[Rfam]
RNA: tRNA
Organism: Nyssa sinensis
RNA sequence: GUCGUGGUGUAGUUGGUUAUCACGUCAGUCUAACACACUGAAGGUCUCCGGUUCGAGUCCGGGCGAC
Numbered sequence: 001g002u003c004g005u006g007g008u009g010u011a012g013u014u015g016g017u018u019a020u021c022a023c024g025u026c027a028g029u030c031u032a033a034c035a036c037a038c039u040g041a042a043g044g045u046c047u048c049c050g051g052u053u054c055g056a057g058u059c060c061g062g063g064c065g066a067c
Stems, first nucleotide, its partner, number of pairs: 001067004007023003025041005047063005